[Rfam]
RNA sequence: AGAAAAAAUACAACAACAAAUCGACGGAAGUUUGUUCUGCAUGGCAAUUUAGUAAUUUUUGCCGCACACCUGCCACCUAUAUAUGAGAAGUGAAGAUGAUUACAAAAAUAAAUCAUAUAUUGAGUCUGCGCUCCACUUCUCAUAUCCUAUCUGCACUGGAUGUAAAACACGCAUGCGGCGCUGACUGGUGCGUUAACCAGUUUUUUAAAUAUAUAGCCCUUUCCAUCUGUUGAAAAUUGAGCAGCUGGUUUUU
Numbered sequence: 001a002g003a004a005a006a007a008a009u010a011c012a013a014c015a016a017c018a019a020a021u022c023g024a025c026g027g028a029a030g031u032u033u034g035u036u037c038u039g040c041a042u043g044g045c046a047a048u049u050u051a052g053u054a055a056u057u058u059u060u061g062c063c064g065c066a067c068a069c070c071u072g073c074c075a076c077c078u079a080u081a082u083a084u085g086a087g088a089a090g091u092g093a094a095g096a097u098g099a100u101u102a103c104a105a106a107a108a109u110a111a112a113u114c115a116u117a118u119a120u121u122g123a124g125u126c127u128g129c130g131c132u133c134c135a136c137u138u139c140u141c142a143u144a145u146c147c148u149a150u151c152u153g154c155a156c157u158g159g160a161u162g163u164a165a166a167a168c169a170c171g172c173a174u175g176c177g178g179c180g181c182u183g184a185c186u187g188g189u190g191c192g193u194u195a196a197c198c199a200g201u202u203u204u205u206u207a208a209a210u211a212u213a214u215a216g217c218c219c220u221u222u223c224c225a226u227c228u229g230u231u232g233a234a235a236a237u238u239g240a241g242c243a244g245c246u247g248g249u250u251u252u253u
Base pairs, nucleotide, nucleotide: 027059028058029057030056031055032054034053037052038051039050041048042046083143084142085141086140087139088138089137090136106121107120108118109117110116122133123132124131125130155201156200157199158198160174161173162172163171177194178193179192180191181190223248224247225246227244228243229242230241231240
The record is a 253-nucleotide RNA from Listeria monocytogenes, which matches "Listeria sRNA rliG" in Rfam. The sequence is in the family's curated seed alignment. For this family Rfam cites "The Listeria transcriptional landscape from saprophytism to virulence" (Toledo-Arana et al., Nature, 2009). It is annotated as a small RNA. Taxonomically the source falls in Listeria monocytogenes (Bacteria, Bacillati, Bacilli, Listeria).